[Rfam]
Background: This 63-nucleotide RNA sequence from Drosophila melanogaster belongs to the Rfam family "FIE3 (ftz instability element 3') element". The fushi tarazu gene is essential for the establishment of the Drosophila embryonic body plan. When first expressed in early embryogenesis, fushi tarazu mRNA is uniformly distributed over most of the embryo. Rfam links the family to the GO term mRNA destabilization. Lineage of the source: Eukaryota > Mandibulata > Endopterygota > Drosophilinae > Sophophora. On this family, see Riedl and Jacobs-Lorena, Mol Cell Biol 1996: "Determinants of Drosophila fushi tarazu mRNA instability". By type it is a cis-regulatory element. It is one of the family's seed sequences.
RNA sequence: UGAUAAUGGCCAAGAGACUUGGAGACUGACACACAUGUUUUUGUACAUAUAGUAGUUAAGAUA
Numbered sequence: 001u002g003a004u005a006a007u008g009g010c011c012a013a014g015a016g017a018c019u020u021g022g023a024g025a026c027u028g029a030c031a032c033a034c035a036u037g038u039u040u041u042u043g044u045a046c047a048u049a050u051a052g053u054a055g056u057u058a059a060g061a062u063a
Stems, first nucleotide, its partner, number of pairs: 020043007027035002